This 71-nucleotide RNA from Scleropages formosus belongs to the Rfam family "mir-34 microRNA precursor family".
The family has 113 seed sequences and 2,256 matches in Rfam 15.1.
Clan: mir-34 clan.

RNA sequence: GGUUUGUAGGCAGUGUUGUUAGCUGAUUGUUUCGCUCUUGCUGCAAUCACUAACCAUACUGCCAACAGAAC
Numbered sequence: 001g002g003u004u005u006g007u008a009g010g011c012a013g014u015g016u017u018g019u020u021a022g023c024u025g026a027u028u029g030u031u032u033c034g035c036u037c038u039u040g041c042u043g044c045a046a047u048c049a050c051u052a053a054c055c056a057u058a059c060u061g062c063c064a065a066c067a068g069a070a071c
Stems, first nucleotide, its partner, number of pairs: 003069004009063002012060005018054005024049007
Dot-bracket structure: ..((((..((.(((((.(((((.(((((((............)))))))))))).))))).))..))))..
Its family is annotated with miRNA-mediated post-transcriptional gene silencing and RISC complex in the Gene Ontology. Taxonomically the source falls in Scleropages (Eukaryota, Chordata, Craniata, Osteoglossocephala). On this family, see Houbaviy et al., Dev Cell 2003: "Embryonic stem cell-specific MicroRNAs". About the family: Human mir-34a was discovered computationally and later experimentally verified.